RNA sequence: GUUUGCCAGAAAUUCGCGGGCAGCAGAUUUGCAUUGAUUCAUGCUAUAGUUG
Number, nucleotide and partner (000 for none) at each position: 001g024002u023003u022004u000005g000006c019007c018008a000009g017010a000011a000012a000013u000014u000015c000016g000017c009018g007019g006020g000021c000022a003023g002024c001025a000026g000027a000028u000029u000030u000031g000032c052033a051034u000035u049036g000037a047038u046039u000040c000041a000042u000043g000044c000045u000046a038047u037048a000049g035050u000051u033052g032
This 52-nucleotide RNA sequence from Trabulsiella odontotermitis belongs to the Rfam family "ES003 sRNA". Rfam links the family to the GO term fermentation. Differentially expressed under several chemical stress and fermentation conditions. A search with the family's covariance model found it, with a score of 44 bits. The base pairs follow the family's consensus structure, which was predicted with RNAfold. Lineage of the source: Bacteria > Pseudomonadota > Enterobacterales > Enterobacteriaceae > Trabulsiella.